[Rfam]
Rfam assigns this 215-nucleotide RNA sequence from Streptomyces longwoodensis to the family "Actinobacteria sRNA Ms_IGR-5".
RNA sequence: ACUUCGGAAAGGAGGUGGUUCGGCAGAUGUAUGCAUACCGGACGGAAGAGGUGGCUGCGGGCUAGCGGUCCGCCGUCAGACUCGGUUCGGCGCCGGACCAGCGUGUGCGCGACACACGCAGCCGGCCAGUUCCACGCAGUCACCCGACCCGCGAGUCGCCGGUACGUCCGGCCGGCUCCUCCCCCGGGAGGAACCAGACUCGCGGGUCGCUGCAU
Dot-bracket structure: ..............(((((..................................))))).((((.((.((................................................)).)).)))).................(((((((((((((((((((.......))))))....................)))))))))))))......
On this family, see Li et al., RNA 2013: "Identification of small RNAs in Mycobacterium smegmatis using heterologous Hfq". The organism belongs to Streptomyces, within Bacteria. It is annotated as a small RNA. A search with the family's covariance model found it, with a score of 92 bits.